[Rfam]
RNA sequence: AUGCAAGUCGUGUCAAGCGGACACGAUGGCAUGGAGAACACAGGGAUUUUUCCGCUUUCUUCCUGUGGCCAACGAAACGGCAGGCGAGCUCCUAUCCCAUCCGGCUU
Numbered sequence: 001a002u003g004c005a006a007g008u009c010g011u012g013u014c015a016a017g018c019g020g021a022c023a024c025g026a027u028g029g030c031a032u033g034g035a036g037a038a039c040a041c042a043g044g045g046a047u048u049u050u051u052c053c054g055c056u057u058u059c060u061u062c063c064u065g066u067g068g069c070c071a072a073c074g075a076a077a078c079g080g081c082a083g084g085c086g087a088g089c090u091c092c093u094a095u096c097c098c099a100u101c102c103g104g105c106u107u
Base pairs, nucleotide, nucleotide: 006106007105008104009103011023012022013021014020025101026100027099028097029096033092034091035090036089039067040066041065042064043063044062045061068081069080070079
RNA: Rhizobiales sRNA Atu_At1